[Rfam]
RNA: Plastid-ccsA-ndhD-1 3UTR RNA
Organism: Olea europaea
RNA sequence: GAACUGAUGAGAACCCUGUGAAUCAAAUAUUGUAGUGAUUCACAGGGUUCAAA
Numbered sequence: 001g002a003a004c005u006g007a008u009g010a011g012a013a014c015c016c017u018g019u020g021a022a023u024c025a026a027a028u029a030u031u032g033u034a035g036u037g038a039u040u041c042a043c044a045g046g047g048u049u050c051a052a053a
Stems, first nucleotide, its partner, number of pairs: 011050015